[Rfam]
RNA sequence: GUAUAAUAAUUGAAUUACCCUCAUAUAUGUUCGAUAAUAUGGUUCGAAUGUCUCUACCGAGUUGCCGUAAAUAACUUGACUAUGAAGGUGGAUGAACGGUAU
Numbered sequence: 001g002u003a004u005a006a007u008a009a010u011u012g013a014a015u016u017a018c019c020c021u022c023a024u025a026u027a028u029g030u031u032c033g034a035u036a037a038u039a040u041g042g043u044u045c046g047a048a049u050g051u052c053u054c055u056a057c058c059g060a061g062u063u064g065c066c067g068u069a070a071a072u073a074a075c076u077u078g079a080c081u082a083u084g085a086a087g088g089u090g091g092a093u094g095a096a097c098g099g100u101a102u
Stems, first nucleotide, its partner, number of pairs: 018088002021085005029049006058078007

Shown here is a 102-nucleotide RNA from Kurthia sp. 11kri321, a member of the family "Purine riboswitch aptamer". A search with the family's covariance model found it, with a score of 85 bits.